[Rfam]
RNA sequence: CUCUUAUCGUGAGUUGGCAGAGGGAAUUGGCCCGAAGACGCCGCAGCAACCGACCAUCCGGCACGGUGCUACAUCCAACAGACAUUCGUCUGAGAGAUAAGAG
Dot-bracket structure: ((((((((....(.((((...(((..[[[[)))......)))))((((.(((.(.....).)..))))))...(]]]](((((....)))))..)))))))))